[Rfam]
RNA sequence: CUGUCGAAAGGGCUAAACCCGAGUAAUCGGGUGGCGCAAAGUUACGGGUCCGUUCACGGAUACCACCGCGAGGUGGGGUUCGUGGAGGGAUCGCCGGACUGCCAAC
Numbered sequence: 001c002u003g004u005c006g007a008a009a010g011g012g013c014u015a016a017a018c019c020c021g022a023g024u025a026a027u028c029g030g031g032u033g034g035c036g037c038a039a040a041g042u043u044a045c046g047g048g049u050c051c052g053u054u055c056a057c058g059g060a061u062a063c064c065a066c067c068g069c070g071a072g073g074u075g076g077g078g079u080u081c082g083u084g085g086a087g088g089g090a091u092c093g094c095c096g097g098a099c100u101g102c103c104a105a106c
Base pairs, nucleotide, nucleotide: 012037013036017032018031019030020029021028022027040100041099042098043097045096046095047094048091049090050089
The family of this 106-nucleotide RNA from Marinobacterium lutimaris is "c-di-GMP-I riboswitch aptamer". The organism belongs to Marinobacterium, within Bacteria.